[Rfam]
Nucleotides: 073
Stems, first nucleotide, its partner, number of pairs: 001072007010025004027043005049065005
Number, partner (000 for none) and nucleotide at each position: 001072a002071g003070g004069u005068g006067c007066g008000u009000a010025g011024c012023u013022c014000a015000a016000u017000u018000g019000g020000c021000a022013g023012a024011g025010c026000a027043g028042c029041g030040g031039u032000c033000u034000c035000c036000a037000a038000a039031a040030c041029c042028g043027c044000a045000g046000g047000u048000u049065g050064a051063a052062g053061g054000u055000u056000c057000g058000a059000u060000u061053c062052c063051u064050u065049c066007c067006g068005c069004a070003c071002c072001u073000g